Record summary: This 88-nucleotide RNA sequence from Melopsittacus undulatus belongs to the Rfam family "mir-599 microRNA precursor family". The source organism's lineage runs through Eukaryota, Amniota, Archosauria, Neognathae and Melopsittacus. Gene Ontology terms of the family: RISC complex and miRNA-mediated post-transcriptional gene silencing. It scores 94 bits against the family's covariance model.

RNA sequence: UGCUGUCCACAGUGUGUUUGAUAAGCUGACAUGGGACAGGAUUUCUUGUUGCUGUUGUGUCAGUAUAUCAAACUCAUACUUGGACAUC
Numbered sequence: 001u002g003c004u005g006u007c008c009a010c011a012g013u014g015u016g017u018u019u020g021a022u023a024a025g026c027u028g029a030c031a032u033g034g035g036a037c038a039g040g041a042u043u044u045c046u047u048g049u050u051g052c053u054g055u056u057g058u059g060u061c062a063g064u065a066u067a068u069c070a071a072a073c074u075c076a077u078a079c080u081u082g083g084a085c086a087u088c
Stems, first nucleotide, its partner, number of pairs: 005085005012077003016073008025064008035056005040050003